[Rfam]
This 378-nucleotide sequence from Sphingobacterium thalpophilum belongs to the Rfam family "Bacterial RNase P class A". Rfam links the family to the GO terms tRNA processing, ribonuclease P activity and dimeric ribonuclease P complex. The family is grouped with related families in Rfam's "RNaseP clan". Rfam classes the family as a ribozyme. Ribonuclease P (RNase P) is a ubiquitous endoribonuclease, found in archaea, bacteria and eukarya as well as chloroplasts and mitochondria.

RNA sequence: AAGCAAACUGGUUCUAUCGCUGCUCUUUCGGGAGGAGAGGAAAGUCCGGGCAACAUAGAGCGACACGCUUCCUAACGGGAAGGAUGUUAUGGAUAUAACAGACAGAAAGUGCCACAGAAAAUAUACCGCUUUUCGGAGUAAGGGUGAAAACGUAAGGUAAGAGCUUACGGUCUUAUAUGGUGACAUAUAUUACGGUAAACCUCGUGUGUUGAAAGACCAAAUAGGUUACGAAAUGCGAAGGCUGCUCGUCUUCUUUCAAUUUAUUGGAAUUCGUAAUGGGUAGGUUGAUUGAGUUUGUCAGUGAUGGCAAACCUAGAUAAAUGAUAGAAAUUCCACUUCGGUGGUCUACAGAACCCGGCUUACAAGGUUUGCUUCUUU
Numbered sequence: 001a002a003g004c005a006a007a008c009u010g011g012u013u014c015u016a017u018c019g020c021u022g023c024u025c026u027u028u029c030g031g032g033a034g035g036a037g038a039g040g041a042a043a044g045u046c047c048g049g050g051c052a053a054c055a056u057a058g059a060g061c062g063a064c065a066c067g068c069u070u071c072c073u074a075a076c077g078g079g080a081a082g083g084a085u086g087u088u089a090u091g092g093a094u095a096u097a098a099c100a101g102a103c104a105g106a107a108a109g110u111g112c113c114a115c116a117g118a119a120a121a122u123a124u125a126c127c128g129c130u131u132u133u134c135g136g137a138g139u140a141a142g143g144g145u146g147a148a149a150a151c152g153u154a155a156g157g158u159a160a161g162a163g164c165u166u167a168c169g170g171u172c173u174u175a176u177a178u179g180g181u182g183a184c185a186u187a188u189a190u191u192a193c194g195g196u197a198a199a200c201c202u203c204g205u206g207u208g209u210u211g212a213a214a215g216a217c218c219a220a221a222u223a224g225g226u227u228a229c230g231a232a233a234u235g236c237g238a239a240g241g242c243u244g245c246u247c248g249u250c251u252u253c254u255u256u257c258a259a260u261u262u263a264u265u266g267g268a269a270u271u272c273g274u275a276a277u278g279g280g281u282a283g284g285u286u287g288a289u290u291g292a293g294u295u296u297g298u299c300a301g302u303g304a305u306g307g308c309a310a311a312c313c314u315a316g317a318u319a320a321a322u323g324a325u326a327g328a329a330a331u332u333c334c335a336c337u338u339c340g341g342u343g344g345u346c347u348a349c350a351g352a353a354c355c356c357g358g359c360u361u362a363c364a365a366g367g368u369u370u371g372c373u374u375c376u377u378u
Stems, first nucleotide, its partner, number of pairs: 001374009011363001012329007020037002023034004042361003046358005051211004058264001060262001063207005068082005083103001085100006104202002109200002111196003126143002128139004151169006174189006215286004225277006255269003259265001293312008